[Rfam]
RNA sequence: AUGGUGGAAGCCGAAAAACCAGAAGAGAGUAGGCG
Numbered sequence: 001a002u003g004g005u006g007g008a009a010g011c012c013g014a015a016a017a018a019c020c021a022g023a024a025g026a027g028a029g030u031a032g033g034c035g
Base pairs, nucleotide, nucleotide: 002021003020004019005018010034011033012032
This 35-nucleotide sequence belongs to the Rfam family "DUF805b RNA". It is annotated as a cis-regulatory element.